[Rfam]
RNA sequence: GGCCCAAAUUUGAAGUAGAGUAGAUUAUCUGUAUCAGCUGACCCUACUAAACUACUCCACUUCGAGUUUGGACCC
Dot-bracket structure: ((.((((((.((((((.((((((.(((......((....))......))).)))))).)))))).)))))).)).
Overview:
The family of this 75-nucleotide RNA from Haemonchus placei is "mir-5928 microRNA precursor family". It scores 60 bits against the family's covariance model. NCBI's taxonomy places the organism under Eukaryota, Bilateria, Chromadorea, Rhabditida, Haemonchus.